[Rfam]
RNA sequence: AGUUGGAUAAGGCACUCUAUUUUGUGGAUUCCACAAAAAUAAGGACCUUAUCCAUACAG
Numbered sequence: 001a002g003u004u005g006g007a008u009a010a011g012g013c014a015c016u017c018u019a020u021u022u023u024g025u026g027g028a029u030u031c032c033a034c035a036a037a038a039a040u041a042a043g044g045a046c047c048u049u050a051u052c053c054a055u056a057c058a059g
Base pairs, nucleotide, nucleotide: 004054005053006052007051008050009049010048011047012046018041019040020039021038022037023036026034
RNA: mir-7386 microRNA precursor family